[Rfam]
RNA sequence: GAACCUUUUAAUCCAGUCCAGUGAGGCUGGCAAGGGCACGGAAUCGACAAGCAAGAGGUGACGGCAGGAGAGAUGAGGUUUCUCCUGUACCGCCUACUGAUUGUCCACCCUGCUUCUUGUCUCCUGACAAGAAGCUUUUUUCUG
Dot-bracket structure: ...(((((....((((((......)))))).))))).........(((((.((..((((................................))))..)).)))))......((((((((((....)))))))))).........
RNA: PyrR binding site
Organism: Brevibacillus panacihumi